[Rfam]
RNA sequence: CCUCUCGAAACAUGCCGUAGCAUGACCUGGCUGGAGAUAGACGGUGAGGUAGAGCACUGAUUGGGGGAGCUGGGGGAGAAAUCCCUCACCCUCCUGUCAAACUCCAAAUUCCCCGUCGUCGAAGAAGGCUGGCAGUCCGGACUACGGGGUAAGCUUGUAGUCCGUAAGGGAGACAACCCAGACCGUGGUUAAUGUCCCUCAAUGUAGGCUAAGUGUCAACACUGAAAGGCGUCCCAGGCCAAAGACAACUGGAAGGUGAGCUCAGAAGCAGCUAUCCUUUAAAAAGUGCGUAACAGCUUACCAGUCGAGGUUUGGGGCACUGAAAAUGGACGGGGCUAAAGCCUACUACAGAUACCACGGACCACACUUUCGUGUGAUGGCGUAGAGAGGCGUGCUGCCUGGGCAGAAGCAGGGGCGUGAGCUCCUGUGGACCGGGUAGUAUUGAGAAU
Numbered sequence: 001c002c003u004c005u006c007g008a009a010a011c012a013u014g015c016c017g018u019a020g021c022a023u024g025a026c027c028u029g030g031c032u033g034g035a036g037a038u039a040g041a042c043g044g045u046g047a048g049g050u051a052g053a054g055c056a057c058u059g060a061u062u063g064g065g066g067g068a069g070c071u072g073g074g075g076g077a078g079a080a081a082u083c084c085c086u087c088a089c090c091c092u093c094c095u096g097u098c099a100a101a102c103u104c105c106a107a108a109u110u111c112c113c114c115g116u117c118g119u120c121g122a123a124g125a126a127g128g129c130u131g132g133c134a135g136u137c138c139g140g141a142c143u144a145c146g147g148g149g150u151a152a153g154c155u156u157g158u159a160g161u162c163c164g165u166a167a168g169g170g171a172g173a174c175a176a177c178c179c180a181g182a183c184c185g186u187g188g189u190u191a192a193u194g195u196c197c198c199u200c201a202a203u204g205u206a207g208g209c210u211a212a213g214u215g216u217c218a219a220c221a222c223u224g225a226a227a228g229g230c231g232u233c234c235c236a237g238g239c240c241a242a243a244g245a246c247a248a249c250u251g252g253a254a255g256g257u258g259a260g261c262u263c264a265g266a267a268g269c270a271g272c273u274a275u276c277c278u279u280u281a282a283a284a285a286g287u288g289c290g291u292a293a294c295a296g297c298u299u300a301c302c303a304g305u306c307g308a309g310g311u312u313u314g315g316g317g318c319a320c321u322g323a324a325a326a327u328g329g330a331c332g333g334g335g336c337u338a339a340a341g342c343c344u345a346c347u348a349c350a351g352a353u354a355c356c357a358c359g360g361a362c363c364a365c366a367c368u369u370u371c372g373u374g375u376g377a378u379g380g381c382g383u384a385g386a387g388a389g390g391c392g393u394g395c396u397g398c399c400u401g402g403g404c405a406g407a408a409g410c411a412g413g414g415g416c417g418u419g420a421g422c423u424c425c426u427g428u429g430g431a432c433c434g435g436g437u438a439g440u441a442u443u444g445a446g447a448a449u
Stems, first nucleotide, its partner, number of pairs: 001390006011024005026135001027132006036120003040117005046111002052105001053103002059098003063094005072087006139163009168179003183360007193350003202347001204346006227321002231318010248305005254278003259273003279283001284299001288297002362379001363376005391444001393441010409428008
Annotation
A member of the RNA family "Archaeal large subunit ribosomal RNA" from Methanoculleus marisnigri, 449 nucleotides of a longer RNA. The organism belongs to Methanoculleus marisnigri, within Archaea. Its family is annotated with structural constituent of ribosome and ribosome in the Gene Ontology. Rfam's curators put it in the seed alignment.